Rfam assigns this 473-nucleotide sequence from Microcebus murinus to the family "FGF-2 internal ribosome entry site (IRES)". A reference for the family is Creancier et al. (2000), "Fibroblast growth factor 2 internal ribosome entry site (IRES) activity ex vivo and in transgenic mice reveals a stringent tissue-specific regulation", J Cell Biol. Rfam 15.1 lists 95 matches to the family in 84 species. Gene Ontology term of the family: ribosome binding. The base pairs follow the family's consensus structure, which was predicted with PFOLD. Rfam describes the family as follows. This family represents the fibroblast growth factor 2 (FGF-2) internal ribosome entry site (IRES). When expressed the FGF-2 protein plays a pivotal role in cell proliferation, differentiation and survival as well as being involved in wound-healing. It has been found that FGF-2 IRES activity is strictly controlled and highly tissue specific.

[Rfam]
RNA sequence: CUGUGGCCGCAGCGCCCGACGCGGAGGCCGGCCCCAGGAAGCCCCGAGCGAGGAGGGGGCGGCGCGCGCGGAGGGAGGAGGGCCGGGGGCCCGGGAGGUUGGUGGGUGUCGGGGGUGGAGAUGUAGAAGAUGUGACGCCGCGGCCCGGCCGGUGCCAGACCAGCGGACGCGGUGCCCGCGGUUGCAAGCGGAUCCCGGCGCUGCAUCCUGGGAGGCGGCUCUCCCGAGGGCGGCGGCGGCGACACCCAUCGCUUCCCCGGCUCCGGGGCGCCGGGCUCGCCGCGCGCUCGGGCCGGCCGAGAGGGCAGCGGCGCGAGGCUUGGGGGCCGCGGGCGGGCCGCGCGCUGCCGGCGGAGAGGCUGGCGGGGCCGGGCCGCGCCCCGGAGCGGCUCGGAGGCGGCCGGCCCGGGGCGGCGGCUCCCCGCGCGGCUCCCGCGGCUCCGGGUCCCCGGCAGGGCCCCGGAGGGCCCAUG
Numbered sequence: 001c002u003g004u005g006g007c008c009g010c011a012g013c014g015c016c017c018g019a020c021g022c023g024g025a026g027g028c029c030g031g032c033c034c035c036a037g038g039a040a041g042c043c044c045c046g047a048g049c050g051a052g053g054a055g056g057g058g059g060c061g062g063c064g065c066g067c068g069c070g071g072a073g074g075g076a077g078g079a080g081g082g083c084c085g086g087g088g089g090c091c092c093g094g095g096a097g098g099u100u101g102g103u104g105g106g107u108g109u110c111g112g113g114g115g116u117g118g119a120g121a122u123g124u125a126g127a128a129g130a131u132g133u134g135a136c137g138c139c140g141c142g143g144c145c146c147g148g149c150c151g152g153u154g155c156c157a158g159a160c161c162a163g164c165g166g167a168c169g170c171g172g173u174g175c176c177c178g179c180g181g182u183u184g185c186a187a188g189c190g191g192a193u194c195c196c197g198g199c200g201c202u203g204c205a206u207c208c209u210g211g212g213a214g215g216c217g218g219c220u221c222u223c224c225c226g227a228g229g230g231c232g233g234c235g236g237c238g239g240c241g242a243c244a245c246c247c248a249u250c251g252c253u254u255c256c257c258c259g260g261c262u263c264c265g266g267g268g269c270g271c272c273g274g275g276c277u278c279g280c281c282g283c284g285c286g287c288u289c290g291g292g293c294c295g296g297c298c299g300a301g302a303g304g305g306c307a308g309c310g311g312c313g314c315g316a317g318g319c320u321u322g323g324g325g326g327c328c329g330c331g332g333g334c335g336g337g338c339c340g341c342g343c344g345c346u347g348c349c350g351g352c353g354g355a356g357a358g359g360c361u362g363g364c365g366g367g368g369c370c371g372g373g374c375c376g377c378g379c380c381c382c383g384g385a386g387c388g389g390c391u392c393g394g395a396g397g398c399g400g401c402c403g404g405c406c407c408g409g410g411g412c413g414g415c416g417g418c419u420c421c422c423c424g425c426g427c428g429g430c431u432c433c434c435g436c437g438g439c440u441c442c443g444g445g446u447c448c449c450c451g452g453c454a455g456g457g458c459c460c461c462g463g464a465g466g467g468c469c470c471a472u473g
Stems, first nucleotide, its partner, number of pairs: 029371007044354002058349010083260006091251001103248006144191002148179002151176006195239003199235006210225006266314001268312002270297005381389003397461001399459004406455001408453001424441001426439002443449002